[Rfam]
RNA sequence: ACCCCCUUACUUGAACAUGAUCUGUUCUAUAGUAAUCGUACAUCUGUAUCCUUGAUUUCUAAGGAGACAGGUGACCAAGUCUGGUGGAUGAAUCAUGACUGUAGGACCAGAGCGUGAUUAACAGCCCUGCAUGGUCAGUGCACCAUUCAGAGCCGUAGAGGAUCGUUCUCAGUUGGGUUCUUCCUGGCUGGGGUGGUCUUGCAGUUGUCUGACAAACC
Dot-bracket structure: ((...((.....(((((.....)))))...)).....))....((((.((((((.....)))))).))))........((.((..............((((((((((((.((((......((.((.(((.(((((......))))).))).)).)).......))))((((((((((.....)))))))))).)))))))))))).......)).)).

Plant small nucleolar RNA U3: a 218-nucleotide RNA sequence from Apium graveolens. By type it is a C/D-box small nucleolar RNA. The organism belongs to Apium, within Eukaryota. The family has 24 seed sequences and 3,759 matches in Rfam 15.1. Rfam's curators write: Small nucleolar RNAs (snoRNAs) are involved in the processing and modification of rRNA in the nucleolus. There are two main classes of snoRNAs: the box C/D class, and the box H/ACA class. U3 snoRNA is a member of the box C/D class. Indeed, the box C/D element is a subset of the six short sequence elements found in all U3 snoRNAs, namely boxes A, A', B, C, C', and D. The U3 snoRNA secondary structure is characterised by a small 5' domain (with boxes A and A'), and a larger 3' domain (with boxes B, C, C', and D), the two domains being linked by a single-stranded hinge. For this family Rfam cites "The uRNA database" (Zwieb, Nucleic Acids Res, 1997).